[Rfam]
RNA sequence: UUUCUGUCAGGCGAACCGUCACCGGAUGGUGUGCCUGUCAAGCAAUCGCUUGACUAGCCUACAGGAACGUC
Dot-bracket structure: (((((((..(((.....((((((....)))).))..(((((........)))))..))).)))))))....
The family of this 71-nucleotide sequence is "DUF3800-IX RNA". Actinobacteria, Firmicutes (1 example), Nitrospirae, Proteobacteria, Verrucomicrobia (1 example). The family's RNA type in Rfam is small RNA. Pairs were carried over by alignment from the consensus structure, which is taken from published work.